[Rfam]
RNA: Small nucleolar RNA Z159/U59
Nucleotides: 083
Stems, first nucleotide, its partner, number of pairs: 003081004
Number, partner (000 for none) and nucleotide at each position: 001000g002000c003081c004080u005079c006078u007000u008000a009000u010000g011000a012000u013000g014000a015000u016000u017000c018000a019000a020000a021000a022000u023000u024000a025000a026000c027000u028000u029000u030000c031000g032000u033000u034000c035000u036000u037000c038000c039000g040000a041000g042000a043000u044000a045000u046000u047000c048000c049000a050000u051000g052000c053000g054000g055000a056000a057000a058000a059000u060000u061000u062000u063000g064000g065000a066000g067000a068000c069000c070000u071000g072000a073000a074000c075000u076000g077000a078006a079005g080004a081003g082000g083000u